[Rfam]
RNA sequence: ACCCGUCCCGUUCGUCCCCGGACGUUGCUCUCUACCCCGGGAACGUCGAGACUGGAGC
Numbered sequence: 001a002c003c004c005g006u007c008c009c010g011u012u013c014g015u016c017c018c019c020g021g022a023c024g025u026u027g028c029u030c031u032c033u034a035c036c037c038c039g040g041g042a043a044c045g046u047c048g049a050g051a052c053u054g055g056a057g058c
Stems, first nucleotide, its partner, number of pairs: 002055002005052003009048002013045003017041005024035002
Dot-bracket structure: .((.(((.((..(((.(((((..((........)).))))).))).)).))).))...
RNA: mir-1247 microRNA precursor family
Organism: Macaca mulatta